Nucleotides: 139
Stems, first nucleotide, its partner, number of pairs: 003063003007059002016044004021039003076131003088118002093112007
Number, partner (000 for none) and nucleotide at each position: 001000u002000u003063g004062c005061a006000u007059u008058g009000a010000a011000a012000a013000a014000u015000g016044u017043c018042u019041g020000c021039c022038c023037c024000u025000c026000a027000u028000u029000c030000c031000c032000u033000u034000u035000a036000g037023g038022g039021g040000u041019u042018a043017g044016a045000a046000a047000u048000a049000c050000a051000u052000c053000c054000a055000u056000a057000a058008c059007a060000u061005u062004g063003c064000u065000a066000c067000a068000u069000u070000a071000a072000a073000a074000c075000g076131g077130a078129g079000u080000u081000c082000u083000c084000a085000g086000g087000g088118g089117c090000u091000g092000c093112c094111a095110a096109c097108c098107u099106u100000a101000c102000a103000g104000u105000a106099g107098a108097g109096g110095u111094u112093g113000c114000a115000u116000g117089g118088u119000a120000g121000u122000a123000u124000a125000u126000u127000u128000u129078c130077u131076c132000a133000u134000a135000c136000a137000u138000a139000a
About this RNA:
The record is a 139-nucleotide sequence from Castor canadensis, which matches "Small nucleolar RNA U109" in Rfam. The family's consensus secondary structure was predicted with WAR. The literature on the family includes a 2005 paper in Nucleic Acids Res by Gu et al., "A novel experimental approach for systematic identification of box H/ACA snoRNAs from eukaryotes". The match comes from Rfam's covariance-model search (97 bits).